The record is a 182-nucleotide RNA sequence from Apteryx australis, which matches "Small Cajal body specific RNA 16" in Rfam. scaRNAs are a specific class of small nuclear RNAs which localise to the Cajal bodies and guide the modification of RNA polymerase II transcribed spliceosomal RNAs U1, U2, U4, U5 and U12. ACA47 belongs to the H/ACA box class of guide RNAs as it has the predicted hairpin-hinge-hairpin-tail structure, the conserved H/ACA-box motifs and is found associated with GAR1. ACA47 is predicted to guide the pseudouridylation of residue U5 of the U1 spliceosomal snRNA. The base pairs follow the family's consensus structure, which was predicted with RNAfold. Its family is annotated with nucleolus and RNA processing in the Gene Ontology.
RNA sequence: AGGGCUUGGGAAAUGGCUGCUGUGUGGUCGGAGCCAGGUGUUUCCAGCCUUGUACCAGCCGGCCUCACCCGUGCCCGAGAUUAAUUCCCACGCAGACUCCAGGCCGGAGUUUGUCCUAUGCAGUAACAGGUGUGAGCAUUCAUGGAGUGUUUUGAUGGUCAUGUAUGAUACUGCAUACAACA
Number, nucleotide and partner (000 for none) at each position: 001a000002g076003g075004g074005c073006u000007u000008g070009g069010g068011a000012a000013a000014u000015g064016g063017c062018u061019g059020c058021u057022g056023u000024g055025u054026g049027g048028u047029c000030g045031g000032a043033g000034c000035c000036a000037g000038g000039u000040g000041u000042u000043u032044c000045c030046a000047g028048c027049c026050u000051u000052g000053u000054a025055c024056c022057a021058g020059c019060c000061g018062g017063c016064c015065u000066c000067a000068c010069c009070c008071g000072u000073g005074c004075c003076c002077g000078a000079g000080a000081u000082u000083a000084a000085u000086u000087c000088c109089c000090a000091c000092g104093c103094a000095g000096a000097c000098u000099c000100c000101a000102g000103g093104c092105c000106g000107g000108a000109g088110u000111u000112u000113g000114u000115c000116c000117u177118a176119u175120g174121c173122a172123g171124u170125a169126a000127c167128a166129g000130g000131u000132g000133u161134g160135a159136g000137c157138a156139u155140u154141c000142a000143u000144g151145g150146a000147g000148u000149g000150u145151u144152u000153u000154g140155a139156u138157g137158g000159u135160c134161a133162u000163g000164u000165a000166u128167g127168a000169u125170a124171c123172u122173g121174c120175a119176u118177a117178c000179a000180a000181c000182a000